[Rfam]
RNA sequence: CGAUACGGUGACGGGUCUACCUCCUCCCAGACCCUGAACCACAUGACGUCGGGUCUCUACCUCCUCCCAGAGCCCCGCUUCACAUAGAAACGGUGGCGCCCACCUCCUCCCGGGCGUCACCGUUUUU
Numbered sequence: 001c002g003a004u005a006c007g008g009u010g011a012c013g014g015g016u017c018u019a020c021c022u023c024c025u026c027c028c029a030g031a032c033c034c035u036g037a038a039c040c041a042c043a044u045g046a047c048g049u050c051g052g053g054u055c056u057c058u059a060c061c062u063c064c065u066c067c068c069a070g071a072g073c074c075c076c077g078c079u080u081c082a083c084a085u086a087g088a089a090a091c092g093g094u095g096g097c098g099c100c101c102a103c104c105u106c107c108u109c110c111c112g113g114g115c116g117u118c119a120c121c122g123u124u125u126u127u
Base pairs, nucleotide, nucleotide: 007040008039009038013034014033015032016031017030045081046080048078052076053075056072091122092121093120094119095118096117097116098115099114100113101112
This 127-nucleotide sequence from Aliiroseovarius sediminilitoris belongs to the Rfam family "Alphaproteobacterial ar14". Rfam links the family to the GO term biological process involved in symbiotic interaction. The source organism's lineage runs through Bacteria, Pseudomonadati, Rhodobacterales, Paracoccaceae and Aliiroseovarius. Rfam classes the family as a small RNA. On this family, see del Val et al., RNA Biol 2012: "A survey of sRNA families in alpha-proteobacteria".